[Rfam]
RNA sequence: GGAGGUGCUGUAAACAUCCUUGACUGGAAGCUGGGGUUUUGACGAUUAGAGCUUUCAGUCGGAUGUUUGCAGCAUCUUU
Dot-bracket structure: .(((((.((((((((((((...((((((((((.................)))))))))).)))))))))))).))))).

mir-30 microRNA precursor family: a 79-nucleotide sequence from Amphiprion percula. Rfam describes the family as follows. This family consists of the mammalian microRNA (miRNA) precursor mir-30a. Animal miRNAs are transcribed as ~70nt precursors and subsequently processed by the Dicer enzyme to give a ~22nt product. In this case the mature sequence comes from both the 3' (miR-30) and 5' (mir-97-6) arms of the precursor. The extents of the hairpin precursors are not generally known and are estimated based on hairpin prediction. The products are thought to have regulatory roles through complementarity to mRNA. The involvement of Dicer in miRNA processing suggests a relationship with the phenomenon of RNA interference. miRNAs are numbered based on the sequence of the mature RNA. The family has 175 seed sequences and 3,879 matches in Rfam 15.1. The base pairs follow the family's consensus structure, which was predicted with PFOLD. The match comes from Rfam's covariance-model search (71 bits).